Molybdenum/Tungsten riboswitch aptamer (Moco RNA motif): a 165-nucleotide sequence from Nicoletella semolina. Pairs were carried over by alignment from the consensus structure, which is taken from published work.
RNA sequence: GCGACUUUAAGACUCCGAGCCAGACCGCCUAAGUUGUUUUAUUUAAGCUACUUGCGUUUCACUUAAGUUAUUCAAUAUGGAAGCUGUGCCAGCAAAAUUUUGCCAAGGAUUGUUGAGAAAUUAGCCGUCCUCUCGUAUUUAGAAAGGUGUCAAAUGCAAAAUAUU
Numbered sequence: 001g002c003g004a005c006u007u008u009a010a011g012a013c014u015c016c017g018a019g020c021c022a023g024a025c026c027g028c029c030u031a032a033g034u035u036g037u038u039u040u041a042u043u044u045a046a047g048c049u050a051c052u053u054g055c056g057u058u059u060c061a062c063u064u065a066a067g068u069u070a071u072u073c074a075a076u077a078u079g080g081a082a083g084c085u086g087u088g089c090c091a092g093c094a095a096a097a098u099u100u101u102g103c104c105a106a107g108g109a110u111u112g113u114u115g116a117g118a119a120a121u122u123a124g125c126c127g128u129c130c131u132c133u134c135g136u137a138u139u140u141a142g143a144a145a146g147g148u149g150u151c152a153a154a155u156g157c158a159a160a161a162u163a164u165u
Base pairs, nucleotide, nucleotide: 006156011151012150013149015147016146019089020088023085025083028080029079033076034075035074036073092103093102094101095100106131107130108129109128110127112125113124114123115122116121132142133141